[Rfam]
RNA sequence: ACUUACAGUUAGUUUUGCUGGUUUGCAUUUCAGCGUGUGUAUAUAUGGCUGUGCAAAUCCAUGCAAAACUGACUGUGAUA
Numbered sequence: 001a002c003u004u005a006c007a008g009u010u011a012g013u014u015u016u017g018c019u020g021g022u023u024u025g026c027a028u029u030u031c032a033g034c035g036u037g038u039g040u041a042u043a044u045a046u047g048g049c050u051g052u053g054c055a056a057a058u059c060c061a062u063g064c065a066a067a068a069c070u071g072a073c074u075g076u077g078a079u080a
Base pairs, nucleotide, nucleotide: 003078004077005076006075007074008073009072010071011070012069013068014067015066016065017064018063020060021059022057023056024055025054026053027052028051032050033049034048
RNA: mir-19 microRNA precursor family
Organism: Odocoileus virginianus